[Rfam]
RNA sequence: CUACUCCCUCUGUUUCAAAAUAUAAGAACGUUUUUAACACUACAAUAGUGUCAAAAACGUUCUUAUAUUAUGAGAUGGAGGGAAUAU
Numbered sequence: 001c002u003a004c005u006c007c008c009u010c011u012g013u014u015u016c017a018a019a020a021u022a023u024a025a026g027a028a029c030g031u032u033u034u035u036a037a038c039a040c041u042a043c044a045a046u047a048g049u050g051u052c053a054a055a056a057a058c059g060u061u062c063u064u065a066u067a068u069u070a071u072g073a074g075a076u077g078g079a080g081g082g083a084a085u086a087u
Stems, first nucleotide, its partner, number of pairs: 003085001005083001007081005013075005019069017037051005